A member of the RNA family "TPP riboswitch aptamer (THI element)" from Schaalia sp. 19OD2882, 109 nucleotides long.
[Rfam]
RNA sequence: AGGACAUUGCACGGGAGCCCUCAUCCAAGGGCUGAGAGGGAGGUCGAGCCUCCGACCGGUGAACCUGAUCUGGGUCAUGCCAGCGAAGGGACGCAAGUCCACCCCCACG
Numbered sequence: 001a002g003g004a005c006a007u008u009g010c011a012c013g014g015g016a017g018c019c020c021u022c023a024u025c026c027a028a029g030g031g032c033u034g035a036g037a038g039g040g041a042g043g044u045c046g047a048g049c050c051u052c053c054g055a056c057c058g059g060u061g062a063a064c065c066u067g068a069u070c071u072g073g074g075u076c077a078u079g080c081c082a083g084c085g086a087a088g089g090g091a092c093g094c095a096a097g098u099c100c101a102c103c104c105c106c107a108c109g
Base pairs, nucleotide, nucleotide: 007096008095009094010093012058013057014056017032018031019030020029021028039053040052041051042050043049064089065088066087070083071082072081073080
Dot-bracket structure: ......((((.(((..(((((......)))))......(((((.....)))))..))).....(((...((((......))))...)))...)))).............

The source organism's lineage runs through Bacteria, Bacillati, Actinomycetota, Actinomycetes and Schaalia.